[Rfam]
RNA sequence: GGCCUAUGAUGGGCAAUUAGUAUUUGCUACUCUUGAUGGCAUAUGAUGCCAUCUGAUGACAUUCUAUCCACCAAGAUCUCUGAGGCC
Numbered sequence: 001g002g003c004c005u006a007u008g009a010u011g012g013g014c015a016a017u018u019a020g021u022a023u024u025u026g027c028u029a030c031u032c033u034u035g036a037u038g039g040c041a042u043a044u045g046a047u048g049c050c051a052u053c054u055g056a057u058g059a060c061a062u063u064c065u066a067u068c069c070a071c072c073a074a075g076a077u078c079u080c081u082g083a084g085g086c087c
Stems, first nucleotide, its partner, number of pairs: 001087004
RNA: Small nucleolar RNA SNORD24